[Rfam]
RNA sequence: AAAACUGUUACCUGAGCUUUUUCACGUAACAGAAGCCGGGGUUUACGGUAACGAAAUCCCG
Number, nucleotide and partner (000 for none) at each position: 001a000002a000003a000004a000005c032006u031007g030008u029009u028010a027011c026012c000013u024014g023015a022016g021017c000018u000019u000020u000021u016022u015023c014024a013025c000026g011027u010028a009029a008030c007031a006032g005033a000034a000035g000036c000037c061038g060039g059040g058041g057042u056043u055044u000045a000046c053047g052048g000049u000050a000051a000052c047053g046054a000055a043056a042057u041058c040059c039060c038061g037
This 61-nucleotide RNA sequence from Pseudomonas corrugata belongs to the Rfam family "Pseudomonas sRNA P36". It scores 42 bits against the family's covariance model.